[Rfam]
RNA sequence: CGCACAGCCCCGUGUUGUCGUCCGACCCCCCCGACCCGACGGCAACGCGGGGCCCCUUA
Numbered sequence: 001c002g003c004a005c006a007g008c009c010c011c012g013u014g015u016u017g018u019c020g021u022c023c024g025a026c027c028c029c030c031c032c033g034a035c036c037c038g039a040c041g042g043c044a045a046c047g048c049g050g051g052g053c054c055c056c057u058u059a
Base pairs, nucleotide, nucleotide: 002058007053008052009051010050011049012048013047014046015045016044017043018042019041020040021039022038
A member of the RNA family "F6 TB sRNA" from Mycolicibacterium fallax, 59 nucleotides long. By type it is a small RNA. A reference for the family is Arnvig and Young (2009), "Identification of small RNAs in Mycobacterium tuberculosis", Mol Microbiol.